[Rfam]
RNA sequence: AAAUUAUAAUAAAAUUUGCCUAAGACUCAGGUGACGAUUUCGUCUUAAUAUUACCUGCCGAGGAACGUAGAAAUGUAAAUUUCCGUAUCCCAGGUCUGGGUGCGGAUUUUUUUAUAAUUAA
Numbered sequence: 001a002a003a004u005u006a007u008a009a010u011a012a013a014a015u016u017u018g019c020c021u022a023a024g025a026c027u028c029a030g031g032u033g034a035c036g037a038u039u040u041c042g043u044c045u046u047a048a049u050a051u052u053a054c055c056u057g058c059c060g061a062g063g064a065a066c067g068u069a070g071a072a073a074u075g076u077a078a079a080u081u082u083c084c085g086u087a088u089c090c091c092a093g094g095u096c097u098g099g100g101u102g103c104g105g106a107u108u109u110u111u112u113u114a115u116a117a118u119u120a121a
Stems, first nucleotide, its partner, number of pairs: 028057005033044003082106009
About this RNA: The record is a 121-nucleotide sequence from Pediococcus cellicola, which matches "Ribosomal protein L10 leader" in Rfam. The family's consensus secondary structure was predicted with CMfinder. Taxonomically the source falls in Pediococcus (Bacteria, Bacillati, Bacilli, Lactobacillales). It is annotated as a cis-regulatory leader. The match comes from Rfam's covariance-model search (73 bits). Rfam's curators write: This family is a putative r-protein leader autoregulatory structure found in B. subtilis and other low-GC Gram-positive bacteria. It is located in the 5' untranslated regions of mRNAs encoding ribosomal proteins L10 and L12 (rplJ-rplL). A Rho-independent transcription terminator structure that is probably involved in regulation is included at the 3' end.